[Rfam]
RNA sequence: CGUUUUUAUUUGUUGUCGUGGGUUCAGUGAAUAAAGCCCCGAAUUUUGGGGUUUUUUUGUAUCUUACGAUUGGUGAGAUACGUAAAAUCAAUAUUACUGUUGGGCUAUUAGCCCUUUUUUU
Numbered sequence: 001c002g003u004u005u006u007u008a009u010u011u012g013u014u015g016u017c018g019u020g021g022g023u024u025c026a027g028u029g030a031a032u033a034a035a036g037c038c039c040c041g042a043a044u045u046u047u048g049g050g051g052u053u054u055u056u057u058u059g060u061a062u063c064u065u066a067c068g069a070u071u072g073g074u075g076a077g078a079u080a081c082g083u084a085a086a087a088u089c090a091a092u093a094u095u096a097c098u099g100u101u102g103g104g105c106u107a108u109u110a111g112c113c114c115u116u117u118u119u120u121u
Base pairs, nucleotide, nucleotide: 033055034054035053036052037051038050039049040048041047102114103113104112105111
This 121-nucleotide RNA from Thalassotalea piscium belongs to the Rfam family "Gammaprotebacteria rimP leader". The base pairs follow the family's consensus structure, which is taken from published work. Gene Ontology term of the family: regulation of gene expression.